[Rfam]
RNA sequence: GGGUUUUGUACCACAUUCUGAGUAUUCCAGAUUGCAUAGCUUUGUGCUACUAUUGCUAUACGGUCUGGGACACUUUUAACAUGGUAUCAAAUC
Numbered sequence: 001g002g003g004u005u006u007u008g009u010a011c012c013a014c015a016u017u018c019u020g021a022g023u024a025u026u027c028c029a030g031a032u033u034g035c036a037u038a039g040c041u042u043u044g045u046g047c048u049a050c051u052a053u054u055g056c057u058a059u060a061c062g063g064u065c066u067g068g069g070a071c072a073c074u075u076u077u078a079a080c081a082u083g084g085u086a087u088c089a090a091a092u093c
Stems, first nucleotide, its partner, number of pairs: 002093005008087006016079002020075004025070010036059005043052002
RNA: mir-960 microRNA precursor family
Organism: Drosophila melanogaster